RNA sequence: UUUCUAUAAAAUUUUGAUUGUUGCUCAGAAAGCCGUGCAUUCGAAACAUUCCGCUUUCGAGCAGUAAUCAGAGUCAAAUAAAAC
Numbered sequence: 001u002u003u004c005u006a007u008a009a010a011a012u013u014u015u016g017a018u019u020g021u022u023g024c025u026c027a028g029a030a031a032g033c034c035g036u037g038c039a040u041u042c043g044a045a046a047c048a049u050u051c052c053g054c055u056u057u058c059g060a061g062c063a064g065u066a067a068u069c070a071g072a073g074u075c076a077a078a079u080a081a082a083a084c
Base pairs, nucleotide, nucleotide: 002083003082005080006079007078012073013072014071015070016069017068018067020065021064022063023062024061025060026059028058029057030056031055032054033053